[Rfam]
RNA: Glycine riboswitch aptamer
RNA sequence: ACGACCCCGCCGGGAGAGCGCGGCAAGAGGGCCGCCGCCGAAGGAGCAAUCGCGCCCCGCGAACUCUCAGGCAGACGGACCGGCGGGG
Numbered sequence: 001a002c003g004a005c006c007c008c009g010c011c012g013g014g015a016g017a018g019c020g021c022g023g024c025a026a027g028a029g030g031g032c033c034g035c036c037g038c039c040g041a042a043g044g045a046g047c048a049a050u051c052g053c054g055c056c057c058c059g060c061g062a063a064c065u066c067u068c069a070g071g072c073a074g075a076c077g078g079a080c081c082g083g084c085g086g087g088g
Base pairs, nucleotide, nucleotide: 006087007086008085009084010083011082012081013080020035021034022033023032037072038071039070040068041067044066045065046064051059